RNA sequence: UGCUGUGAUGGUGUAAUUUGCGUCUUACUCUGGGUUUAGCGACAGUUGCCUGCUGUCACAUGCUGACCCAGACGGUUGACGAAAACUUAAUCUGAGCA
Numbered sequence: 001u002g003c004u005g006u007g008a009u010g011g012u013g014u015a016a017u018u019u020g021c022g023u024c025u026u027a028c029u030c031u032g033g034g035u036u037u038a039g040c041g042a043c044a045g046u047u048g049c050c051u052g053c054u055g056u057c058a059c060a061u062g063c064u065g066a067c068c069c070a071g072a073c074g075g076u077u078g079a080c081g082a083a084a085a086c087u088u089a090a091u092c093u094g095a096g097c098a
Base pairs, nucleotide, nucleotide: 001098002097003096021081022080023079024078030071031070032069033068034067039063040062041057042056043055044054045053